Shown here is a 74-nucleotide RNA sequence from Rhodobacteraceae bacterium HIMB11, a member of the family "tRNA".
The match comes from Rfam's covariance-model search (70 bits).

[Rfam]
RNA sequence: GGUCCCGUAGCUCAGUUGGAUAGAGUGCUUGCCUCCGAAGCAAGAGGUCACAGGUUCGAAUCCUGUCGGGAUCG
Numbered sequence: 001g002g003u004c005c006c007g008u009a010g011c012u013c014a015g016u017u018g019g020a021u022a023g024a025g026u027g028c029u030u031g032c033c034u035c036c037g038a039a040g041c042a043a044g045a046g047g048u049c050a051c052a053g054g055u056u057c058g059a060a061u062c063c064u065g066u067c068g069g070g071a072u073c074g
Base pairs, nucleotide, nucleotide: 001073002072003071004070005069006068007067010026011025012024013023028044029043030042031041032040050066051065052064053063054062
Pairs were carried over by alignment from the consensus structure, which is taken from published work.
The source organism's lineage runs through Bacteria, Pseudomonadati, Pseudomonadota, Alphaproteobacteria and Paracoccaceae.
It is annotated as a transfer RNA.